[Rfam]
RNA sequence: UUCUAUCUUCGGGGCAGGGUGAAAUUCCCGACCGACGGUGAUGAGUAGUAUGGCUAUUCUAAGUCCGUGACCUGUUUGACGUAGUCAAAUGGCUGACCUGGUGUGAAUCCAGGGCCGACAGUAUAGUCUGGAUGGGAGAAGAUAAGA
Numbered sequence: 001u002u003c004u005a006u007c008u009u010c011g012g013g014g015c016a017g018g019g020u021g022a023a024a025u026u027c028c029c030g031a032c033c034g035a036c037g038g039u040g041a042u043g044a045g046u047a048g049u050a051u052g053g054c055u056a057u058u059c060u061a062a063g064u065c066c067g068u069g070a071c072c073u074g075u076u077u078g079a080c081g082u083a084g085u086c087a088a089a090u091g092g093c094u095g096a097c098c099u100g101g102u103g104u105g106a107a108u109c110c111a112g113g114g115c116c117g118a119c120a121g122u123a124u125a126g127u128c129u130g131g132a133u134g135g136g137a138g139a140a141g142a143u144a145a146g147a
Base pairs, nucleotide, nucleotide: 004144005143006142007141008140009139010138017029018028019027031127032126033117034116035068036067037066038065063115064114072092073091097113098112099111100110101109119130120129121128
RNA: FMN riboswitch aptamer (RFN element)
Organism: Radiobacillus deserti